[Rfam]
RNA: Potassium channel RNA editing signal
Organism: Rodentolepis nana
RNA sequence: AUACGCUAUUAUACAUCAGCUUUUUUCUUUCAAUUACAGGGAUGAUGGUAGGUGCUUUGUGCGCCAUAACAGGAGUCUUAACAAUUGCCCUUCCAGUGCCCGUCAUUGUGUCAAAC
Numbered sequence: 001a002u003a004c005g006c007u008a009u010u011a012u013a014c015a016u017c018a019g020c021u022u023u024u025u026u027c028u029u030u031c032a033a034u035u036a037c038a039g040g041g042a043u044g045a046u047g048g049u050a051g052g053u054g055c056u057u058u059g060u061g062c063g064c065c066a067u068a069a070c071a072g073g074a075g076u077c078u079u080a081a082c083a084a085u086u087g088c089c090c091u092u093c094c095a096g097u098g099c100c101c102g103u104c105a106u107u108g109u110g111u112c113a114a115a116c
Stems, first nucleotide, its partner, number of pairs: 002115001005112001007110003011106001013103002019099002023096001039079004051065003
Dot-bracket structure: .(..(.(((.(.((....((..(...............((((........(((.........)))..........))))................).))..))..).))).)..).